Notes: The record is a 76-nucleotide RNA from Podilymbus podiceps, which matches "Small nucleolar RNA SNORD83" in Rfam. The match comes from Rfam's covariance-model search (62 bits). Pairs were carried over by alignment from the consensus structure, which was predicted with PFOLD. The source organism's lineage runs through Eukaryota, Eumetazoa, Bilateria, Podicipedidae and Podilymbus.
RNA sequence: GCCAAAUGAUGUUAAAUGGAUGGCAUUAGUACUCUGUGCAAAGAUGACAUUUAUCUAUCACCCCAUACUGAUGGCU
Numbered sequence: 001g002c003c004a005a006a007u008g009a010u011g012u013u014a015a016a017u018g019g020a021u022g023g024c025a026u027u028a029g030u031a032c033u034c035u036g037u038g039c040a041a042a043g044a045u046g047a048c049a050u051u052u053a054u055c056u057a058u059c060a061c062c063c064c065a066u067a068c069u070g071a072u073g074g075c076u
Stems, first nucleotide, its partner, number of pairs: 001075004029039004